[Rfam]
RNA: Nuclear RNase P
Organism: Nannizzia gypsea
RNA sequence: GCCAAAGCUGCGUUUCUUUGCUACACUCGCCAGUUCACGCUGGAAUUUAACACUUGCAAAUGAGAAAUUCGGAGUACUCUUCACCUUUCAACCAGCUUCUGCACGUCUACAGUGAGGAAGCUCGGUACUGCCCGUAAGGGUCUGGCAUGAAAAGUGUCUGCAACCAGGCAUAAGAAACAUCGGGGGCAAAAGGGUGCGGAUGGGCGGCCUGGGAGAAAUCCCGGGGCUUCCUUUUCUGCAUUCUUUUACCCCCUUGGGAGAGCCGUUGCGAAGAUUGUGUGUGUCUUCCUUCGGGGAGAUGCGACACCUAAGUGCAAUACGCAGCGUAUCAGGGCUUCCUCGAUUCAGAGGGAGCCAGGGUAUCAUUCGAUUCCGAUUACUCUGGC
Numbered sequence: 001g002c003c004a005a006a007g008c009u010g011c012g013u014u015u016c017u018u019u020g021c022u023a024c025a026c027u028c029g030c031c032a033g034u035u036c037a038c039g040c041u042g043g044a045a046u047u048u049a050a051c052a053c054u055u056g057c058a059a060a061u062g063a064g065a066a067a068u069u070c071g072g073a074g075u076a077c078u079c080u081u082c083a084c085c086u087u088u089c090a091a092c093c094a095g096c097u098u099c100u101g102c103a104c105g106u107c108u109a110c111a112g113u114g115a116g117g118a119a120g121c122u123c124g125g126u127a128c129u130g131c132c133c134g135u136a137a138g139g140g141u142c143u144g145g146c147a148u149g150a151a152a153a154g155u156g157u158c159u160g161c162a163a164c165c166a167g168g169c170a171u172a173a174g175a176a177a178c179a180u181c182g183g184g185g186g187c188a189a190a191a192g193g194g195u196g197c198g199g200a201u202g203g204g205c206g207g208c209c210u211g212g213g214a215g216a217a218a219u220c221c222c223g224g225g226g227c228u229u230c231c232u233u234u235u236c237u238g239c240a241u242u243c244u245u246u247u248a249c250c251c252c253c254u255u256g257g258g259a260g261a262g263c264c265g266u267u268g269c270g271a272a273g274a275u276u277g278u279g280u281g282u283g284u285c286u287u288c289c290u291u292c293g294g295g296g297a298g299a300u301g302c303g304a305c306a307c308c309u310a311a312g313u314g315c316a317a318u319a320c321g322c323a324g325c326g327u328a329u330c331a332g333g334g335c336u337u338c339c340u341c342g343a344u345u346c347a348g349a350g351g352g353a354g355c356c357a358g359g360g361u362a363u364c365a366u367u368c369g370a371u372u373c374c375g376a377u378u379a380c381u382c383u384g385g386c
Stems, first nucleotide, its partner, number of pairs: 003385001005383001009324001014319001017060004032047005037041001070375005079273004130141004144158005160269004167264003183253003326363005